[Rfam]
RNA: eL15-Euryarchaeota ribosomal protein leader
Organism: Halorarum halophilum
RNA sequence: CCCGGUACGCCGGGACGAAAUGUGGGUGCCGCGGCCGUCGGUCGCGCGCACCUGAAUCGCAAG
Numbered sequence: 001c002c003c004g005g006u007a008c009g010c011c012g013g014g015a016c017g018a019a020a021u022g023u024g025g026g027u028g029c030c031g032c033g034g035c036c037g038u039c040g041g042u043c044g045c046g047c048g049c050a051c052c053u054g055a056a057u058c059g060c061a062a063g
Stems, first nucleotide, its partner, number of pairs: 001014005016059003024053005